Shown here is a 74-nucleotide RNA sequence, a member of the family "DUF3800-X RNA". The sequence is in the family's curated seed alignment. The family's consensus secondary structure is taken from published work. By type it is a small RNA.
RNA sequence: UGGUGAAUAAGUCCUUUCCGAAACGGAUGAGGCCACCUUGAGGUGGGUGGGACAAAGUAGGAAAGGGAUCACAA
Numbered sequence: 001u002g003g004u005g006a007a008u009a010a011g012u013c014c015u016u017u018c019c020g021a022a023a024c025g026g027a028u029g030a031g032g033c034c035a036c037c038u039u040g041a042g043g044u045g046g047g048u049g050g051g052a053c054a055a056a057g058u059a060g061g062a063a064a065g066g067g068a069u070c071a072c073a074a
Stems, first nucleotide, its partner, number of pairs: 001074001003072004012067008033046005